[Rfam]
RNA sequence: AUUAAACACAGUUAUAAAUUUCAGUGUAUAUUGUUUGACCGUUGUCUUAUUUAAUAUUUUUAUUAAUUUUUAUUAUUAUUAGAUAAUAAAAUAUGAAUAGUAUUUUAUGUUUCACGUAAUUUUAAAAGUUUUUCUUAUAAAUUUUUAAAUAAGACGGAAUGUCAAAUGUUAAAUAUGAAAACUUAACUGUACUUAAA
Numbered sequence: 001a002u003u004a005a006a007c008a009c010a011g012u013u014a015u016a017a018a019u020u021u022c023a024g025u026g027u028a029u030a031u032u033g034u035u036u037g038a039c040c041g042u043u044g045u046c047u048u049a050u051u052u053a054a055u056a057u058u059u060u061u062a063u064u065a066a067u068u069u070u071u072a073u074u075a076u077u078a079u080u081a082g083a084u085a086a087u088a089a090a091a092u093a094u095g096a097a098u099a100g101u102a103u104u105u106u107a108u109g110u111u112u113c114a115c116g117u118a119a120u121u122u123u124a125a126a127a128g129u130u131u132u133u134c135u136u137a138u139a140a141a142u143u144u145u146u147a148a149a150u151a152a153g154a155c156g157g158a159a160u161g162u163c164a165a166a167u168g169u170u171a172a173a174u175a176u177g178a179a180a181a182c183u184u185a186a187c188u189g190u191a192c193u194u195a196a197a
Stems, first nucleotide, its partner, number of pairs: 027173001029171002032168001034166006042158001043156008
RNA: MIR812 microRNA precursor family